[Rfam]
Rfam assigns this 125-nucleotide sequence from Olea europaea to the family "Small nucleolar RNA U19".
RNA sequence: AUCUGGCUUAGUUAGGAGGCCAACACUAACAAAUUCGAUUCUAUUUCAUUGGAUCUCAAAACUAGGGCUCUUUGAUCGGACUCUUUGUCCUCAAUCUUUGGUCCUCCAAGGAGCCUUGGACAGUU
Numbered sequence: 001a002u003c004u005g006g007c008u009u010a011g012u013u014a015g016g017a018g019g020c021c022a023a024c025a026c027u028a029a030c031a032a033a034u035u036c037g038a039u040u041c042u043a044u045u046u047c048a049u050u051g052g053a054u055c056u057c058a059a060a061a062c063u064a065g066g067g068c069u070c071u072u073u074g075a076u077c078g079g080a081c082u083c084u085u086u087g088u089c090c091u092c093a094a095u096c097u098u099u100g101g102u103c104c105u106c107c108a109a110g111g112a113g114c115c116u117u118g119g120a121c122a123g124u125u
Stems, first nucleotide, its partner, number of pairs: 005020001007018003037055005062119007071110004078104005
Rfam 15.1 lists 421 matches to the family in 201 species. It is annotated as an H/ACA-box small nucleolar RNA. For this family Rfam cites "Experimental RNomics: identification of 140 candidates for small non-messenger RNAs in the plant Arabidopsis thaliana" (Marker et al., Curr Biol, 2002). Its family is annotated with nucleolus and RNA processing in the Gene Ontology.